[Rfam]
The family of this 107-nucleotide RNA from Otolemur garnettii is "Y RNA". A search with the family's covariance model found it, with a score of 44 bits. For this family Rfam cites "Conserved features of Y RNAs: a comparison of experimentally derived secondary structures" (Teunissen et al., Nucleic Acids Res, 2000).
RNA sequence: AGCUGGUGGGAAGGUAGCGAGUUAUGUCGCUUGAUCGUUUAGUUACAGACAGAACUCCUCAUUCUACUCUUUCCCCUCUUCUCACUACUGCGCUCGGCUAGUCUUAA
Numbered sequence: 001a002g003c004u005g006g007u008g009g010g011a012a013g014g015u016a017g018c019g020a021g022u023u024a025u026g027u028c029g030c031u032u033g034a035u036c037g038u039u040u041a042g043u044u045a046c047a048g049a050c051a052g053a054a055c056u057c058c059u060c061a062u063u064c065u066a067c068u069c070u071u072u073c074c075c076c077u078c079u080u081c082u083c084a085c086u087a088c089u090g091c092g093c094u095c096g097g098c099u100a101g102u103c104u105u106a107a
Base pairs, nucleotide, nucleotide: 002102003101004100005099006098007097010095011094014091015090016086017085019083020082021081037069041065042064
Rfam describes the family as follows. Y RNAs are components of the Ro ribonucleoprotein particle (Ro RNP), in association with Ro60 and La proteins. The Y RNAs and Ro60 and La proteins are well conserved, but the function of the Ro RNP is not known. The base pairs follow the family's consensus structure, which is taken from published work.